[Rfam]
RNA sequence: CCCGCAGCGGGAGGCUCUGACGCGCGGUCCACACCUUCGGUCGCCGGGACCGCGCCGAGCCACUGGCGAGACCGACCUGCGAUGGC
Numbered sequence: 001c002c003c004g005c006a007g008c009g010g011g012a013g014g015c016u017c018u019g020a021c022g023c024g025c026g027g028u029c030c031a032c033a034c035c036u037u038c039g040g041u042c043g044c045c046g047g048g049a050c051c052g053c054g055c056c057g058a059g060c061c062a063c064u065g066g067c068g069a070g071a072c073c074g075a076c077c078u079g080c081g082a083u084g085g086c
Base pairs, nucleotide, nucleotide: 002085003084004083007080008079009078010077011076013061014060015059022055023054024053025052026051027050028049029048039073040072041069042068043067044066045065

Annotation: The record is an 86-nucleotide RNA, which matches "c-di-GMP-II-GAG riboswitch aptamer" in Rfam. Clan: c-di-GMP_II riboswitch clan. Gene Ontology terms of the family: regulation of gene expression and cyclic-di-GMP binding. The base pairs follow the family's consensus structure, which is taken from published work.